[Rfam]
RNA: iscR stability element
Organism: [Enterobacter] lignolyticus
RNA sequence: GAUAAAGAUUUCAGAAUCAGGCCAGGGCAAUCAGCGCCCUGUGUACUCGGUCGUACAUCAAGCCGGUUGCCUGAUUCCUUGCAUUGAGUGAUGUACGGAGUUUAAAGAGC
Numbered sequence: 001g002a003u004a005a006a007g008a009u010u011u012c013a014g015a016a017u018c019a020g021g022c023c024a025g026g027g028c029a030a031u032c033a034g035c036g037c038c039c040u041g042u043g044u045a046c047u048c049g050g051u052c053g054u055a056c057a058u059c060a061a062g063c064c065g066g067u068u069g070c071c072u073g074a075u076u077c078c079u080u081g082c083a084u085u086g087a088g089u090g091a092u093g094u095a096c097g098g099a100g101u102u103u104a105a106a107g108a109g110c
Base pairs, nucleotide, nucleotide: 008102010100011099012098014077015076016075017074018073019072020071021070022069023041024040025039026038027037028036045067046066048065049064050063080095082093083092084091